[Rfam]
RNA: Group II catalytic intron D1-D4-5
RNA sequence: CCCAACUCUCUAUUCGAGGAUGGGAAUGACGGCUCCAUGUUGCUCGAAACCAUCCCGUUGAGACUCCUACAUGCGUCUCGUCUCGGCAGAGAUCAGGGGUAUGAAGCUAGGCGAAGUCGGCUGAACGAAGGCUGGAGCCACUCGCAAGAGCAGGUAUGCCGACGGAUAGGCCGGACGGCUGAAAA
Numbered sequence: 001c002c003c004a005a006c007u008c009u010c011u012a013u014u015c016g017a018g019g020a021u022g023g024g025a026a027u028g029a030c031g032g033c034u035c036c037a038u039g040u041u042g043c044u045c046g047a048a049a050c051c052a053u054c055c056c057g058u059u060g061a062g063a064c065u066c067c068u069a070c071a072u073g074c075g076u077c078u079c080g081u082c083u084c085g086g087c088a089g090a091g092a093u094c095a096g097g098g099g100u101a102u103g104a105a106g107c108u109a110g111g112c113g114a115a116g117u118c119g120g121c122u123g124a125a126c127g128a129a130g131g132c133u134g135g136a137g138c139c140a141c142u143c144g145c146a147a148g149a150g151c152a153g154g155u156a157u158g159c160c161g162a163c164g165g166a167u168a169g170g171c172c173g174g175a176c177g178g179c180u181g182a183a184a185a
Stems, first nucleotide, its partner, number of pairs: 018055006031045002056177004066111004070103005076097003080093004118173005126164002130160002132153003